[Rfam]
RNA: MIR535 microRNA precursor family
RNA sequence: GGCUUUGGAUGACAACGAGAGAGAGCACGCUGGUCGGCAACCAUGCAUAUCGUCAUGACUGCGUACUGGCGUGCUUUUUCUCGUUGUCACUCAGCU
Numbered sequence: 001g002g003c004u005u006u007g008g009a010u011g012a013c014a015a016c017g018a019g020a021g022a023g024a025g026c027a028c029g030c031u032g033g034u035c036g037g038c039a040a041c042c043a044u045g046c047a048u049a050u051c052g053u054c055a056u057g058a059c060u061g062c063g064u065a066c067u068g069g070c071g072u073g074c075u076u077u078u079u080c081u082c083g084u085u086g087u088c089a090c091u092c093a094g095c096u
Base pairs, nucleotide, nucleotide: 010089011088012087013086014085016083017082020079021078023076025074026073027072028071029070030069031068032067033066034065